[Rfam]
Shown here is a 128-nucleotide RNA sequence from Acer saccharum, a member of the family "U11 spliceosomal RNA". The family's consensus secondary structure is taken from published work. It scores 75 bits against the family's covariance model. Its family is annotated with pre-mRNA 5'-splice site binding, U11 snRNP and mRNA 5'-splice site recognition in the Gene Ontology.
RNA sequence: UAAAAGGGUCGGUUGGCUAAGUAUGCCACUCUCACCCUAGCAUGGUGAGUGCCGUAUGGAUAUCAAGACAUAUGGCCGACAUAAUUUGUGUAACCCUUUAGGGUUGGGUAUCCUUGGCCGACCCUCCA
Numbered sequence: 001u002a003a004a005a006g007g008g009u010c011g012g013u014u015g016g017c018u019a020a021g022u023a024u025g026c027c028a029c030u031c032u033c034a035c036c037c038u039a040g041c042a043u044g045g046u047g048a049g050u051g052c053c054g055u056a057u058g059g060a061u062a063u064c065a066a067g068a069c070a071u072a073u074g075g076c077c078g079a080c081a082u083a084a085u086u087u088g089u090g091u092a093a094c095c096c097u098u099u100a101g102g103g104u105u106g107g108g109u110a111u112c113c114u115u116g117g118c119c120g121a122c123c124c125u126c127c128a
Base pairs, nucleotide, nucleotide: 008080009079010078011077012076014028015027016026017025029051031049032048033047034046035045036044052075053074054073055072056071057070058069100125101124102123103122104121105120106119107118111117112116